[Rfam]
RNA sequence: CCCAGCAGUAGUCAGCUGCUCGUGGCUGCUCAGUGCCUGUGCCAGUGUUAUGCUGCUGGGAGAGAAAGGUGCUGCUGAGCUUUCCUGGCACCAGCGAGGCCGUCCUGGUGCUCAGUGGUGCCAGGUUUUGGCAGCACUCUGCAUGCCUGAGAGUGGAGUAACUCCUGCCCGUGGAGUUAGAGCCUAGAUUGGAUGCAGACAAC
Numbered sequence: 001c002c003c004a005g006c007a008g009u010a011g012u013c014a015g016c017u018g019c020u021c022g023u024g025g026c027u028g029c030u031c032a033g034u035g036c037c038u039g040u041g042c043c044a045g046u047g048u049u050a051u052g053c054u055g056c057u058g059g060g061a062g063a064g065a066a067a068g069g070u071g072c073u074g075c076u077g078a079g080c081u082u083u084c085c086u087g088g089c090a091c092c093a094g095c096g097a098g099g100c101c102g103u104c105c106u107g108g109u110g111c112u113c114a115g116u117g118g119u120g121c122c123a124g125g126u127u128u129u130g131g132c133a134g135c136a137c138u139c140u141g142c143a144u145g146c147c148u149g150a151g152a153g154u155g156g157a158g159u160a161a162c163u164c165c166u167g168c169c170c171g172u173g174g175a176g177u178u179a180g181a182g183c184c185u186a187g188a189u190u191g192g193a194u195g196c197a198g199a200c201a202a203c
Base pairs, nucleotide, nucleotide: 001060002059003058004057005056006055007054008053009052011051012050015046016045017044018043020041021039022038024037025036026035069137070136071135072134073133074132075131076130077129084125085124086123087122088121089120090119091118092117093116096113097112098111099109100108101107139198140197141196142195143194144193146191155184156183159179160178161177162176163175164174165173

Overview: A member of the RNA family "Small nucleolar RNA SNORA74" from Melospiza melodia, 203 nucleotides long. The literature on the family includes a 1998 paper in RNA by Bortolin and Kiss, "Human U19 intron-encoded snoRNA is processed from a long primary transcript that possesses little potential for protein coding". From the family's description: U19 belongs to the H/ACA class of snoRNAs. snoRNAs bind a number of proteins (including dyskerin, Gar1p and Nop10p in the case of the H/ACA class) to form snoRNP complexes. This class are thought to guide the sites of modification of uridines to pseudouridines by forming direct base pairing interactions with substrate RNAs. Targets may include ribosomal and spliceosomal RNAs but the exact functions of many snoRNAs, including U19, are not confirmed. Clan: SNORA74 clan. Taxonomically the source falls in Melospiza (Eukaryota, Bilateria, Deuterostomia, Aves). It is annotated as an H/ACA-box small nucleolar RNA. The base pairs follow the family's consensus structure, which was predicted with PFOLD.